Rfam assigns this 141-nucleotide sequence from Paenibacillus sp. J45TS6 to the family "c-di-AMP riboswitch aptamer (ydaO/yuaA leader)".
RNA sequence: UCACGAUAACCGCCGAAUUCUUACGCACCUAAGAAGCGGGGGACCCGCCUACCAUGGGUGAAUUGAUCUCGAAACAGAGUGAUCAUAGGGUACCUUCAACCGAAUCCUUAGCUAACCUCGCAGGCAUUGGAAGGAGUAUUA
Numbered sequence: 001u002c003a004c005g006a007u008a009a010c011c012g013c014c015g016a017a018u019u020c021u022u023a024c025g026c027a028c029c030u031a032a033g034a035a036g037c038g039g040g041g042g043a044c045c046c047g048c049c050u051a052c053c054a055u056g057g058g059u060g061a062a063u064u065g066a067u068c069u070c071g072a073a074a075c076a077g078a079g080u081g082a083u084c085a086u087a088g089g090g091u092a093c094c095u096u097c098a099a100c101c102g103a104a105u106c107c108u109u110a111g112c113u114a115a116c117c118u119c120g121c122a123g124g125c126a127u128u129g130g131a132a133g134g135a136g137u138a139u140u141a
Base pairs, nucleotide, nucleotide: 012125013124014123018035019034020033021032022031023030036121037120038119039118040117041116056107057106058105064085065084066083067082088101089100091098